[Rfam]
A member of the RNA family "FMN riboswitch aptamer (RFN element)" from Albidovulum denitrificans, 159 nucleotides long. Pairs were carried over by alignment from the consensus structure, which is taken from published work. The source organism's lineage runs through Bacteria, Pseudomonadati, Rhodobacterales, Paracoccaceae and Albidovulum.
RNA sequence: CCGCGUUCUCAGGGCGGGGCGGAAUUCCCCACCGGCGGUAUGGGGCCAAUACGCGCGCGCGCGCCCCGAGCCCGCGAGCGCCCUCGCGAAAGCGUGGGGUCAGCAGAUCCGGUGCGAUGCCGGGGCCGACGGUCACAGUCCGGAUGAAAGAGAACGUAC
Numbered sequence: 001c002c003g004c005g006u007u008c009u010c011a012g013g014g015c016g017g018g019g020c021g022g023a024a025u026u027c028c029c030c031a032c033c034g035g036c037g038g039u040a041u042g043g044g045g046c047c048a049a050u051a052c053g054c055g056c057g058c059g060c061g062c063g064c065c066c067c068g069a070g071c072c073c074g075c076g077a078g079c080g081c082c083c084u085c086g087c088g089a090a091a092g093c094g095u096g097g098g099g100u101c102a103g104c105a106g107a108u109c110c111g112g113u114g115c116g117a118u119g120c121c122g123g124g125g126c127c128g129a130c131g132g133u134c135a136c137a138g139u140c141c142g143g144a145u146g147a148a149a150g151a152g153a154a155c156g157u158a159c
Base pairs, nucleotide, nucleotide: 003157004156005155006154007153008152009151010150017029018028019027031139032138033128034127035075036074037073038072070126071125078104079103108124109123110122111121112120130142131141132140